[Rfam]
RNA sequence: CGACGCGUCGCGGGAGAGCCGGCAGUUCAGUCAACGCAGCACGCUGUUGGCCCAGCUUUGGCCGGCACCGAAGGAGCAAGCCUCCCCGCCAAUCUCUCAGGUCACUACACCGCGAUGACGAG
Numbered sequence: 001c002g003a004c005g006c007g008u009c010g011c012g013g014g015a016g017a018g019c020c021g022g023c024a025g026u027u028c029a030g031u032c033a034a035c036g037c038a039g040c041a042c043g044c045u046g047u048u049g050g051c052c053c054a055g056c057u058u059u060g061g062c063c064g065g066c067a068c069c070g071a072a073g074g075a076g077c078a079a080g081c082c083u084c085c086c087c088g089c090c091a092a093u094c095u096c097u098c099a100g101g102u103c104a105c106u107a108c109a110c111c112g113c114g115a116u117g118a119c120g121a122g
Stems, first nucleotide, its partner, number of pairs: 006117008019065004067102003070098002074096003080089002
Notes
Rfam assigns this 122-nucleotide RNA from Agromyces badenianii to the family "Glycine riboswitch aptamer". NCBI's taxonomy places the organism under Bacteria, Actinomycetota, Actinomycetes, Microbacteriaceae, Agromyces. A search with the family's covariance model found it, with a score of 59 bits.